[Rfam]
RNA sequence: GACGAGUCGAAAAAAGAACGCGAGAUGCGGAUAUUUUUGAGAUAGGGGACGUCUGCUUUUGAUAGCAAGCACGGGAAGUGCCGACGUUGAUUGCCCUGAUGUGAACAGGUAGUAAUCACA
Numbered sequence: 001g002a003c004g005a006g007u008c009g010a011a012a013a014a015a016g017a018a019c020g021c022g023a024g025a026u027g028c029g030g031a032u033a034u035u036u037u038u039g040a041g042a043u044a045g046g047g048g049a050c051g052u053c054u055g056c057u058u059u060u061g062a063u064a065g066c067a068a069g070c071a072c073g074g075g076a077a078g079u080g081c082c083g084a085c086g087u088u089g090a091u092u093g094c095c096c097u098g099a100u101g102u103g104a105a106c107a108g109g110u111a112g113u114a115a116u117c118a119c120a
Stems, first nucleotide, its partner, number of pairs: 006043003009038005019029003048088006054067004069081004089117003095109003

Rfam assigns this 120-nucleotide RNA sequence from Lactobacillus pasteurii to the family "COG3610-DE RNA". The family's RNA type in Rfam is small RNA. The sequence is in the family's curated seed alignment.